This 76-nucleotide RNA sequence from Carlito syrichta belongs to the Rfam family "mir-320 microRNA precursor family". The source organism's lineage runs through Eukaryota, Deuterostomia, Boreoeutheria, Primates and Carlito. The match comes from Rfam's covariance-model search (76 bits). The family has 38 seed sequences and 659 matches in Rfam 15.1.

RNA sequence: UAAAAAUGAGGUCUUCUCUUCCCAGGUCUUCCUGAAGUUGGGAAAAGUUGGGUUGAGAGGACGGAAAAAAAAAAGA
Numbered sequence: 001u002a003a004a005a006a007u008g009a010g011g012u013c014u015u016c017u018c019u020u021c022c023c024a025g026g027u028c029u030u031c032c033u034g035a036a037g038u039u040g041g042g043a044a045a046a047g048u049u050g051g052g053u054u055g056a057g058a059g060g061a062c063g064g065a066a067a068a069a070a071a072a073a074a075g076a
Stems, first nucleotide, its partner, number of pairs: 014059005021052005029044006
Dot-bracket structure: .............(((((..(((((...((((((....))))))...)))))..))))).................